Annotation: Small nucleolar RNA SNORA13: a 135-nucleotide RNA sequence from Megalops atlanticus. The family's RNA type in Rfam is H/ACA-box small nucleolar RNA. The base pairs follow the family's consensus structure, which was predicted with CMfinder. The organism belongs to Megalops, within Eukaryota. The family has 50 seed sequences and 1,034 matches in Rfam 15.1. Rfam links the family to the GO terms RNA processing and nucleolus. ACA13 is a member of the H/ACA class of snoRNA that guide the sites of modification of uridines to pseudouridines.
RNA sequence: UGCCUUUUUGUGUUGCCCUAUCAUUGUUACACAAAUGAAUGGGGUGUCAACAAAGGCAUACAUCAACCUUUGUGUUGGCCUUAACAAGGUGUCUAACAGUGUCACCUUGUGUUAAGUUCUGCAUCAAGUACAUGU
Number, nucleotide and partner (000 for none) at each position: 001u000002g057003c056004c055005u054006u053007u052008u000009u000010g000011u049012g048013u000014u046015g045016c044017c043018c041019u000020a000021u038022c037023a036024u035025u034026g000027u000028u000029a000030c000031a000032c000033a000034a025035a024036u023037g022038a021039a000040u000041g018042g000043g017044g016045u015046g014047u000048c012049a011050a000051c000052a007053a006054a005055g004056g003057c002058a000059u000060a000061c000062a000063u000064c000065a000066a000067c000068c000069u128070u127071u126072g125073u123074g122075u121076u000077g119078g118079c000080c000081u000082u000083a117084a000085c000086a000087a113088g112089g110090u109091g000092u000093c000094u104095a000096a000097c000098a000099g000100u000101g000102u000103c000104a094105c000106c000107u000108u000109g090110u089111g000112u088113u087114a000115a000116g000117u083118u078119c077120u000121g075122c074123a073124u000125c072126a071127a070128g069129u000130a000131c000132a000133u000134g000135u000